[Rfam]
Background:
The record is an 87-nucleotide sequence from Priestia veravalensis, which matches "BsrC" in Rfam. The literature on the family includes a 2008 paper in Gene by Saito et al., "Novel small RNA-encoding genes in the intergenic regions of Bacillus subtilis". The 301 nucleotide sequence from Kouji Nakamura has been trimmed to a highly conserved ~85 nucleotide long core to form this family. By type it is a small RNA. It scores 74 bits against the family's covariance model.
RNA sequence: UUUAACCUAAACGACGCAAGCCCUACCUCUCUUGCAUCCUCACGGCUCCGAAGCCGAUCCAGUGUGAAUAAGUUGUUUUUAAAAACA
Numbered sequence: 001u002u003u004a005a006c007c008u009a010a011a012c013g014a015c016g017c018a019a020g021c022c023c024u025a026c027c028u029c030u031c032u033u034g035c036a037u038c039c040u041c042a043c044g045g046c047u048c049c050g051a052a053g054c055c056g057a058u059c060c061a062g063u064g065u066g067a068a069u070a071a072g073u074u075g076u077u078u079u080u081a082a083a084a085a086c087a
Base pairs, nucleotide, nucleotide: 035066036065039062040061043056044055045054046053047052